Record summary
Rfam assigns this 91-nucleotide RNA sequence from Paenibacillus flagellatus to the family "c-di-GMP-I riboswitch aptamer". A search with the family's covariance model found it, with a score of 77 bits. The base pairs follow the family's consensus structure, which is taken from published work. Taxonomically the source falls in Paenibacillus (Bacteria, Bacillota, Bacilli, Caryophanales).
[Rfam]
RNA sequence: UGGAAAAAAUGGCAAACUCGUUGAAAAACGGGGACGCAAAGCUACAGGGGCUAAGGCGGAACUAAUACCGCGAUGCCAGCCAGUUGCCCGA
Numbered sequence: 001u002g003g004a005a006a007a008a009a010u011g012g013c014a015a016a017c018u019c020g021u022u023g024a025a026a027a028a029c030g031g032g033g034a035c036g037c038a039a040a041g042c043u044a045c046a047g048g049g050g051c052u053a054a055g056g057c058g059g060a061a062c063u064a065a066u067a068c069c070g071c072g073a074u075g076c077c078a079g080c081c082a083g084u085u086g087c088c089c090g091a
Stems, first nucleotide, its partner, number of pairs: 012037002017032006040085004047081002049077003056071004